[Rfam]
RNA: int-alpA RNA
Organism: Thauera propionica
RNA sequence: GCCGCGCCUACUCCGACGUUAGGAAAACCGGGGUCCCUUGCCCGGCAGGUGCGGCACCAGCUUUCAAGG
Dot-bracket structure: ((((((((..((........)).....(((((..[[.[.[)))))..))))))))........].].]]